The record is a 97-nucleotide RNA sequence from Treponema denticola, which matches "TD-2 RNA" in Rfam. The family's consensus secondary structure is taken from published work. By type it is a small RNA.
RNA sequence: CCCGCCACGGAUGGCGGGUGGUUUCAGCUUAAAGAGUUUGUGCUUGUCACAAACUCGAAGAUCAAAAAUAUAUAAGGAUGUAUAUUUUUGAUCGAGU
Dot-bracket structure: ((((((......))))))...............(((((((((.....)))))))))...((((((((((((((......))))))))))))))....